[Rfam]
RNA sequence: CAAGCAUGAACGCUGCUAUUUUCCGUUUCUUUUUUUACUUUUAGCGCCUGACAUCCAGGGGCUUUUGCGCAUAAGAAAAGAAACGAAAAAUCGCGCUAAAAGCCUCCCUCGUGGAGGCUUUUUUGUU
Numbered sequence: 001c002a003a004g005c006a007u008g009a010a011c012g013c014u015g016c017u018a019u020u021u022u023c024c025g026u027u028u029c030u031u032u033u034u035u036u037a038c039u040u041u042u043a044g045c046g047c048c049u050g051a052c053a054u055c056c057a058g059g060g061g062c063u064u065u066u067g068c069g070c071a072u073a074a075g076a077a078a079a080g081a082a083a084c085g086a087a088a089a090a091u092c093g094c095g096c097u098a099a100a101a102g103c104c105u106c107c108c109u110c111g112u113g114g115a116g117g118c119u120u121u122u123u124u125g126u127u
Base pairs, nucleotide, nucleotide: 015094016093018091020089021088022087024085025084026083027082028081029080030079031078032077033076035074036073037072041057058068060066061065099121100120101119102118103117104116105115106114107113
Source information:
Phenylalanine leader peptide: a 127-nucleotide RNA sequence from Pantoea agglomerans. The family's RNA type in Rfam is cis-regulatory leader. NCBI's taxonomy places the organism under Bacteria, Pseudomonadota, Gammaproteobacteria, Erwiniaceae, Pantoea. Pairs were carried over by alignment from the consensus structure, which was predicted with CMfinder.